The record is an 80-nucleotide sequence from Ornithorhynchus anatinus, which matches "mir-130 microRNA precursor family" in Rfam. Its family is annotated with RISC complex and miRNA-mediated post-transcriptional gene silencing in the Gene Ontology. It scores 41 bits against the family's covariance model.
RNA sequence: CCCAAGCCUGGGCUCUUUCCACUGAGCCACAGUGCUUCUCCCAUCCCUCAGUGCUCAGUGGAAAGAGCACAGGCUUGGAA
Numbered sequence: 001c002c003c004a005a006g007c008c009u010g011g012g013c014u015c016u017u018u019c020c021a022c023u024g025a026g027c028c029a030c031a032g033u034g035c036u037u038c039u040c041c042c043a044u045c046c047c048u049c050a051g052u053g054c055u056c057a058g059u060g061g062a063a064a065g066a067g068c069a070c071a072g073g074c075u076u077g078g079a080a
Stems, first nucleotide, its partner, number of pairs: 003078001005075006012068016